The family of this 82-nucleotide sequence from Nicotiana attenuata is "Small nucleolar RNA R21". The base pairs follow the family's consensus structure, which was predicted with PFOLD. Rfam 15.1 lists 472 matches to the family in 146 species. Lineage of the source: Eukaryota > Spermatophyta > Gunneridae > Solanaceae > Nicotiana. It is annotated as a C/D-box small nucleolar RNA. Rfam links the family to the GO terms nucleolus and RNA processing.
RNA sequence: CAUCCCUGUGAUGAAUACUUUAUAAAUUUAACGUUAAAAGUAGACUGAACUUUAAGGAAGACAAAAUUAAUUCUGAGGGAUG
Numbered sequence: 001c002a003u004c005c006c007u008g009u010g011a012u013g014a015a016u017a018c019u020u021u022a023u024a025a026a027u028u029u030a031a032c033g034u035u036a037a038a039a040g041u042a043g044a045c046u047g048a049a050c051u052u053u054a055a056g057g058a059a060g061a062c063a064a065a066a067u068u069a070a071u072u073c074u075g076a077g078g079g080a081u082g
Base pairs, nucleotide, nucleotide: 001082002081003080004079005078006077